[Rfam]
Nucleotides: 132
Base pairs, nucleotide, nucleotide: 003058004057005056006055009050010049019044020043021042022041023040025038026037027036063132064131067127068126069125071123072122073121083112084111085110086109087108088107089106090104091103
Number, partner (000 for none) and nucleotide at each position: 001000g002000u003058g004057c005056a006055u007000u008000c009050u010049u011000c012000a013000a014000a015000a016000c017000c018000c019044c020043c021042c022041g023040g024000u025038a026037g027036c028000u029000g030000u031000c032000u033000u034000u035000a036027g037026c038025u039000g040023c041022c042021g043020g044019g045000a046000c047000a048000a049010g050009g051000a052000g053000g054000a055006a056005u057004g058003c059000u060000a061000g062000a063132g064131g065000a066000a067127u068126c069125c070000u071123a072122g073121a074000g075000u076000g077000a078000a079000g080000c081000a082000a083112g084111g085110c086109u087108g088107g089106g090104g091103u092000c093000g094000u095000u096000a097000a098000c099000u100000c101000a102000a103091a104090c105000u106089c107088u108087c109086a110085g111084c112083c113000a114000u115000u116000u117000c118000a119000g120000c121073u122072c123071u124000u125069g126068g127067a128000c129000a130000u131064u132063c
Shown here is a 132-nucleotide RNA from Anguilla anguilla, a member of the family "Small nucleolar RNA SNORA14". About the family: ACA14 is a member of the H/ACA class of snoRNA that guide the sites of modification of uridines to pseudouridines. Lineage of the source: Eukaryota > Bilateria > Euteleostomi > Teleostei > Anguilla. Gene Ontology terms of the family: RNA processing and nucleolus. The family has 18 seed sequences and 848 matches in Rfam 15.1.